A member of the RNA family "Betaproteobacteria toxic small RNA" from Massilia sp. Root351, 62 nucleotides long. On this family, see Sass et al., Sci Rep 2017: "Identification of small RNAs abundant in Burkholderia cenocepacia biofilms reveal putative regulators with a potential role in carbon and iron metabolism".
RNA sequence: UGUCUCCUCCAACCGUUCUCCGAACAUUGGAUUCAGCCCGCGCCUGACGCGGGCUUUUUUUU
Numbered sequence: 001u002g003u004c005u006c007c008u009c010c011a012a013c014c015g016u017u018c019u020c021c022g023a024a025c026a027u028u029g030g031a032u033u034c035a036g037c038c039c040g041c042g043c044c045u046g047a048c049g050c051g052g053g054c055u056u057u058u059u060u061u062u
Base pairs, nucleotide, nucleotide: 008031009030010029011028012027035055036054037053038052039051040050041049042048
Annotation
About the family: Overexpression in amino aid rich medium attenuates growth, suggesting role in repressing amino acid intake and metabolism. The source organism's lineage runs through Bacteria, Pseudomonadati, Betaproteobacteria, Burkholderiales and Massilia.